This 85-nucleotide RNA from Glycine max belongs to the Rfam family "Small nucleolar RNA R64/Z200 family". The family's consensus secondary structure was predicted with PFOLD. The source organism's lineage runs through Eukaryota, Pentapetalae, Papilionoideae, Phaseoleae and Glycine subgen. Soja. By type it is a C/D-box small nucleolar RNA.
[Rfam]
RNA sequence: GUUCCGGGGUGAAGAAUUUGAAUCAAAUUCACAUGGCAGAGGUUUUUGAAUCAAUGAGAAUGACAAUUCUGUUACUGAGCAAAAU
Numbered sequence: 001g002u003u004c005c006g007g008g009g010u011g012a013a014g015a016a017u018u019u020g021a022a023u024c025a026a027a028u029u030c031a032c033a034u035g036g037c038a039g040a041g042g043u044u045u046u047u048g049a050a051u052c053a054a055u056g057a058g059a060a061u062g063a064c065a066a067u068u069c070u071g072u073u074a075c076u077g078a079g080c081a082a083a084a085u
Base pairs, nucleotide, nucleotide: 001085002084003083006080041052042051043050044049
A search with the family's covariance model found it, with a score of 46 bits.